[Rfam]
RNA sequence: CUUCACGGAACCCAGCCACAGCGGGUUGUCGUCCGCCCGGGCCUGGCCGUACGCGGACAUGAGCGCCCGCGCCUC
Numbered sequence: 001c002u003u004c005a006c007g008g009a010a011c012c013c014a015g016c017c018a019c020a021g022c023g024g025g026u027u028g029u030c031g032u033c034c035g036c037c038c039g040g041g042c043c044u045g046g047c048c049g050u051a052c053g054c055g056g057a058c059a060u061g062a063g064c065g066c067c068c069g070c071g072c073c074u075c
Stems, first nucleotide, its partner, number of pairs: 014026001016024002033069001038065002044059002047056003
RNA: ASpks TB sRNA